RNA: Mammalian CPEB3 ribozyme
RNA sequence: GUUGCAAGUUCAAGGUCACAGCAGAAAGCACGGCCCUGUCAGAUUCCAGGGAAUCUGUGAAUUCUGCU
Numbered sequence: 001g002u003u004g005c006a007a008g009u010u011c012a013a014g015g016u017c018a019c020a021g022c023a024g025a026a027a028g029c030a031c032g033g034c035c036c037u038g039u040c041a042g043a044u045u046c047c048a049g050g051g052a053a054u055c056u057g058u059g060a061a062u063u064c065u066g067c068u
Stems, first nucleotide, its partner, number of pairs: 014035004020068007040057007